Mammalian CPEB3 ribozyme: an 80-nucleotide RNA from Alligator sinensis.
[Rfam]
RNA sequence: AAAGGUCACAAGUUUAAGGCUUUAGCAGAAGCACUCAUAGUACAGCCCUACCAGAUUCCAAUAAAUCUGCAAAUUCUGCU
Numbered sequence: 001a002a003a004g005g006u007c008a009c010a011a012g013u014u015u016a017a018g019g020c021u022u023u024a025g026c027a028g029a030a031g032c033a034c035u036c037a038u039a040g041u042a043c044a045g046c047c048c049u050a051c052c053a054g055a056u057u058c059c060a061a062u063a064a065a066u067c068u069g070c071a072a073a074u075u076c077u078g079c080u
Stems, first nucleotide, its partner, number of pairs: 018047004024080007031043001033041001052069006
Dot-bracket structure: .................[[[[..((((((((.(.......).)]]]]....((((((......))))))....)))))))
Annotation: The source organism's lineage runs through Eukaryota, Opisthokonta, Archelosauria, Alligatorinae and Alligator. About the family: The mammalian CPEB3 ribozyme is a self cleaving RNA located in the second intron of the CPEB3 gene which belongs to a family of genes regulating messenger RNA polyadenylation. Pairs were carried over by alignment from the consensus structure, which is taken from published work.